[Rfam]
RNA sequence: AGGCUGUGAUGACUGAUUUCGUUUCUCGAUCGAUCUUGAAUAUCUCAUGUUAGCUCUUAUACGGACCCAAGUGAGAGCUAAUUUCUCAUUUGUUGACAAUAUUUGUGCGUGUCUGAGCCUU
Numbered sequence: 001a002g003g004c005u006g007u008g009a010u011g012a013c014u015g016a017u018u019u020c021g022u023u024u025c026u027c028g029a030u031c032g033a034u035c036u037u038g039a040a041u042a043u044c045u046c047a048u049g050u051u052a053g054c055u056c057u058u059a060u061a062c063g064g065a066c067c068c069a070a071g072u073g074a075g076a077g078c079u080a081a082u083u084u085c086u087c088a089u090u091u092g093u094u095g096a097c098a099a100u101a102u103u104u105g106u107g108c109g110u111g112u113c114u115g116a117g118c119c120u121u
Stems, first nucleotide, its partner, number of pairs: 001120004
small nucleolar RNA snoR126: a 121-nucleotide sequence from Salix purpurea. The base pairs follow the family's consensus structure, which was predicted with RNAalifold. Its family is annotated with nucleolus and RNA processing in the Gene Ontology. The family's RNA type in Rfam is C/D-box small nucleolar RNA.